[Rfam]
Shown here is a 46-nucleotide sequence from Methanohalophilus mahii, a member of the family "eL15-Euryarchaeota ribosomal protein leader".
RNA sequence: CGGGAAGAAUCCCGUUGGAGUGUGGCCUUUAUGGCUGAACCGUCAA
Numbered sequence: 001c002g003g004g005a006a007g008a009a010u011c012c013c014g015u016u017g018g019a020g021u022g023u024g025g026c027c028u029u030u031a032u033g034g035c036u037g038a039a040c041c042g043u044c045a046a
Stems, first nucleotide, its partner, number of pairs: 001014005016042003024036004
The organism belongs to Methanohalophilus mahii, within Archaea.
Pairs were carried over by alignment from the consensus structure, which is taken from published work.
A reference for the family is Eckert and Weinberg (2020), "Discovery of 20 novel ribosomal leader candidates in bacteria and archaea", BMC Microbiol.